[Rfam]
RNA sequence: CCAACCCUGUCAGGAGAGCGCUUCCCCCCGAGGAAGCCGCCGAAGGCGCAGGAGGCUGGUCAAACAGCCCUGAACGCUCAGGCAAAAGGACUGACAAACGCCC
Numbered sequence: 001c002c003a004a005c006c007c008u009g010u011c012a013g014g015a016g017a018g019c020g021c022u023u024c025c026c027c028c029c030g031a032g033g034a035a036g037c038c039g040c041c042g043a044a045g046g047c048g049c050a051g052g053a054g055g056c057u058g059g060u061c062a063a064a065c066a067g068c069c070c071u072g073a074a075c076g077c078u079c080a081g082g083c084a085a086a087a088g089g090a091c092u093g094a095c096a097a098a099c100g101c102c103c
Stems, first nucleotide, its partner, number of pairs: 008096006020037004039083003042079002046077003052070001

Glycine riboswitch aptamer: a 103-nucleotide RNA from Rubrivivax sp. It scores 53 bits against the family's covariance model. Rfam 15.1 lists 9,425 matches to the family in 5,228 species.